Shown here is a 330-nucleotide sequence from Calycina marina, a member of the family "Group I catalytic intron".

RNA sequence: AACUAUGACUCAAGAGUGUUAACUUAAGAGGGUCGUGAGAGGACCGUGGCAGCACCGGGCCUAGUGGCCGCCCACGCGGCGGCCGCAACACUGUCAAAUUGCGGGGAGUUCCUAAAGCUUUUGCUACCGCCGCUGCCCGGAAACGGGUCGGUUGGCACCGGGUUAAUCGCCCUGGGUAUGGUCAUAACGCAAAAGAUAUUACAAUGGAUAACCUGCAGCCAAGUCCUACCGGCCCCCAGGCCCACGGACGCAGUUCAACGACUAAACGGCAGUGGAUCCGCCCUUCGAGGCGGGUUUAAGAUAUAGUCUACCGCCGGUCGAAAGACCGGC
Dot-bracket structure: ..............(((....)))................................................................(((((.(....((((((....(((.............................................................................................)))...))))))((...((((....((((....))))...))))...))...[.[[[[[...).))))).(((((((......)))))))........]]]]]].....(((((....)))))..
The source organism's lineage runs through Eukaryota, Ascomycota, saccharomyceta, sordariomyceta and Calycina. Rfam's curators write: Group I catalytic introns are large self-splicing ribozymes. They catalyse their own excision from mRNA, tRNA and rRNA precursors in a wide range of organisms. The family's consensus secondary structure is taken from published work. Gene Ontology term of the family: Group I intron splicing.